[Rfam]
RNA sequence: CCCGCCACUGUGCUAGUCUGUAAAAGGGACUGUGUACUGUCCAGAGGAGGCUAAUAAUAACCCAGCUCUAGGAAGCAGGACUAAUCAACUCGGUGGUUAACCCUGUGCCAAAAAGACUGGAAC
Numbered sequence: 001c002c003c004g005c006c007a008c009u010g011u012g013c014u015a016g017u018c019u020g021u022a023a024a025a026g027g028g029a030c031u032g033u034g035u036a037c038u039g040u041c042c043a044g045a046g047g048a049g050g051c052u053a054a055u056a057a058u059a060a061c062c063c064a065g066c067u068c069u070a071g072g073a074a075g076c077a078g079g080a081c082u083a084a085u086c087a088a089c090u091c092g093g094u095g096g097u098u099a100a101c102c103c104u105g106u107g108c109c110a111a112a113a114a115g116a117c118u119g120g121a122a123c
Base pairs, nucleotide, nucleotide: 005047006046008044009043010042018034020030021028062120063119064118065117066115067114069112071109072108076105077104078103079102084097085096086095